[Rfam]
Nucleotides: 161
Base pairs, nucleotide, nucleotide: 001155003153004152005151006150008148009147010146011145012144013143014142015141016140017139018138019137020136022134023133024132025131
Number, partner (000 for none) and nucleotide at each position: 001155a002000u003153c004152a005151a006150c007000g008148u009147u010146u011145g012144a013143c014142c015141a016140u017139u018138c019137g020136u021000a022134u023133u024132a025131u026000u027000u028000a029000a030000a031000a032000u033000a034000u035000u036000u037000a038000u039000g040000u041000a042000a043000u044000u045000a046000u047000a048000a049000u050000u051000u052000a053000u054000u055000u056000u057000a058000u059000u060000g061000u062000g063000a064000g065000u066000u067000g068000a069000u070000u071000u072000a073000u074000c075000a076000u077000c078000a079000a080000u081000u082000g083000u084000u085000c086000u087000u088000u089000a090000a091000g092000c093000a094000u095000g096000a097000c098000a099000u100000a101000a102000a103000u104000a105000c106000u107000u108000u109000u110000g111000u112000a113000u114000u115000u116000g117000c118000a119000c120000a121000a122000a123000a124000a125000u126000u127000u128000u129000g130000a131025a132024u133023a134022a135000g136020a137019u138018g139017a140016a141015u142014g143013g144012u145011c146010a147009a148008a149000u150006g151005u152004u153003g154000c155001u156000c157000a158000a159000g160000a161000a

A member of the RNA family "MIR812 microRNA precursor family" from Oryza sativa, 161 nucleotides long. Gene Ontology terms of the family: miRNA-mediated post-transcriptional gene silencing and RISC complex. The source organism's lineage runs through Eukaryota, Streptophyta, Liliopsida, Oryzeae and Oryza sativa. Rfam 15.1 lists 57,451 matches to the family in 24 species.